[Rfam]
This 49-nucleotide sequence from Paracoccus sp. S-4012 belongs to the Rfam family "SAM/SAH riboswitch aptamer". Its family is annotated with regulation of gene expression and S-adenosylmethionine metabolic process in the Gene Ontology. NCBI's taxonomy places the organism under Bacteria, Pseudomonadati, Pseudomonadota, Paracoccaceae, Paracoccus. The match comes from Rfam's covariance-model search (60 bits).
RNA sequence: CGACCGUCACAACGGCUUCCUGGCGUGGCGGUUUGACCCCAAUGGAGCA
Numbered sequence: 001c002g003a004c005c006g007u008c009a010c011a012a013c014g015g016c017u018u019c020c021u022g023g024c025g026u027g028g029c030g031g032u033u034u035g036a037c038c039c040c041a042a043u044g045g046a047g048c049a
Stems, first nucleotide, its partner, number of pairs: 004031007013022002015048003019045002